[Rfam]
RNA: Xanthomonadaceae sRNA sX15
Organism: Xanthomonas euvesicatoria
RNA sequence: GUCGAGAGCUCCCCUGCCUGCCCAGCCUUACGUCUACGCGUGGCAACACUGGCAACUGUUCGGGCGAUACGGGGGAGAAACCGGCGUGGGCACCCAGCUACACGACGAUCGGUAACGAUCCAGGCUCUCACGGUGGCCCACGCCGGCUCUCGACGCCCA
Numbered sequence: 001g002u003c004g005a006g007a008g009c010u011c012c013c014c015u016g017c018c019u020g021c022c023c024a025g026c027c028u029u030a031c032g033u034c035u036a037c038g039c040g041u042g043g044c045a046a047c048a049c050u051g052g053c054a055a056c057u058g059u060u061c062g063g064g065c066g067a068u069a070c071g072g073g074g075g076a077g078a079a080a081c082c083g084g085c086g087u088g089g090g091c092a093c094c095c096a097g098c099u100a101c102a103c104g105a106c107g108a109u110c111g112g113u114a115a116c117g118a119u120c121c122a123g124g125c126u127c128u129c130a131c132g133g134u135g136g137c138c139c140a141c142g143c144c145g146g147c148u149c150u151c152g153a154c155g156c157c158c159a
Base pairs, nucleotide, nucleotide: 001154002153003152004151005150006149007148008147009077010076011075012074013073015066016065017064018063019062020061023058024057025056034052035051038049040047041046081146082145083144084143085142086141087140088139089138090137091135092134093133094132107120108119109118110117